[Rfam]
RNA sequence: CUGCAAUGUUCUCAGUGCAUCCUUUGGUUCUCCGAGCCGAAAGAAGUCACUAGCUGAAAAAGAGUUUAUACUCUGAUCACACAGUAACAUUGCAAUAAAAGCUUAGCUCGAGAUGCGUGUGCCGUUCUGCUUUUAAUGCGAUCUGGUUCCUUUUCUCCUCGGGACAAUU
Numbered sequence: 001c002u003g004c005a006a007u008g009u010u011c012u013c014a015g016u017g018c019a020u021c022c023u024u025u026g027g028u029u030c031u032c033c034g035a036g037c038c039g040a041a042a043g044a045a046g047u048c049a050c051u052a053g054c055u056g057a058a059a060a061a062g063a064g065u066u067u068a069u070a071c072u073c074u075g076a077u078c079a080c081a082c083a084g085u086a087a088c089a090u091u092g093c094a095a096u097a098a099a100a101g102c103u104u105a106g107c108u109c110g111a112g113a114u115g116c117g118u119g120u121g122c123c124g125u126u127c128u129g130c131u132u133u134u135a136a137u138g139c140g141a142u143c144u145g146g147u148u149c150c151u152u153u154u155c156u157c158c159u160c161g162g163g164a165c166a167a168u169u
Base pairs, nucleotide, nucleotide: 003093004092005091006090007089008088017030019028020027021026035074036073040069042067043066044065107163108162109161110160111159112158115155121147122146123145124144128140129139130138
RNA: Caenorhabditis snoRNA ceN104